[Rfam]
RNA sequence: GAAACGUCAACCCGGCACCACGUCUGUGGGCAAGACCGGGACCGUCCCACCGCAAGGCAGGACAUCC
Dot-bracket structure: ..........(((((..((((....))))......)))))...((((..((....))..))))....